A member of the RNA family "Guanidine-II riboswitch aptamer (mini-ykkC)" from Biostraticola tofi, 45 nucleotides long. Rfam links the family to the GO term regulation of gene expression. The base pairs follow the family's consensus structure, which is taken from published work. The match comes from Rfam's covariance-model search (38 bits).

Nucleotides: 045
Stems, first nucleotide, its partner, number of pairs: 002019007034045004
Number, partner (000 for none) and nucleotide at each position: 001000g002019u003018u004017g005016c006015c007014g008013g009000a010000c011000g012000a013008c014007c015006g016005g017004u018003a019002g020000a021000c022000g023000g024000a025000u026000c027000u028000u029000a030000u031000c032000u033000u034045g035044g036043g037042g038000a039000c040000g041000a042037c043036c044035c045034c